[Rfam]
RNA sequence: GCGAUGAGCUGAAUUGUGUAAGUCGAAGACACGUCGUAAGACAUGCACGAUGUGGCGUGCAGUCUCCGCCUCAAUACGCAGAAGCCCCCAUUUAUGGGGGCU
Numbered sequence: 001g002c003g004a005u006g007a008g009c010u011g012a013a014u015u016g017u018g019u020a021a022g023u024c025g026a027a028g029a030c031a032c033g034u035c036g037u038a039a040g041a042c043a044u045g046c047a048c049g050a051u052g053u054g055g056c057g058u059g060c061a062g063u064c065u066c067c068g069c070c071u072c073a074a075u076a077c078g079c080a081g082a083a084g085c086c087c088c089c090a091u092u093u094a095u096g097g098g099g100g101c102u
Base pairs, nucleotide, nucleotide: 014074015073016072018070024068025067027065028064029063030062033042034041044061045060047058048057049056083102084101085100086099087098088097089096090095